[Rfam]
Description
The family of this 37-nucleotide RNA is "DUF805b RNA". The family is grouped with related families in Rfam's "DUF805 clan".

RNA sequence: UGGGCGGUUGCCGAAAAGCCCAGAAAAAGAGUAGGCU
Numbered sequence: 001u002g003g004g005c006g007g008u009u010g011c012c013g014a015a016a017a018g019c020c021c022a023g024a025a026a027a028a029g030a031g032u033a034g035g036c037u
Stems, first nucleotide, its partner, number of pairs: 002021004010036003